This 69-nucleotide sequence belongs to the Rfam family "Small nucleolar RNA U25". The literature on the family includes a 1996 paper in Proc Natl Acad Sci U S A by Tycowski et al., "A small nucleolar RNA requirement for site-specific ribose methylation of rRNA in Xenopus". The sequence is in the family's curated seed alignment.

RNA sequence: UGCCAAUGAUGAGAUCAAUCACAGACCUGUUCUGAAAGCAAUGAGGACAGCUUACUAUCUCUGAGGCCC
Numbered sequence: 001u002g003c004c005a006a007u008g009a010u011g012a013g014a015u016c017a018a019u020c021a022c023a024g025a026c027c028u029g030u031u032c033u034g035a036a037a038g039c040a041a042u043g044a045g046g047a048c049a050g051c052u053u054a055c056u057a058u059c060u061c062u063g064a065g066g067c068c069c
Stems, first nucleotide, its partner, number of pairs: 002067003027050006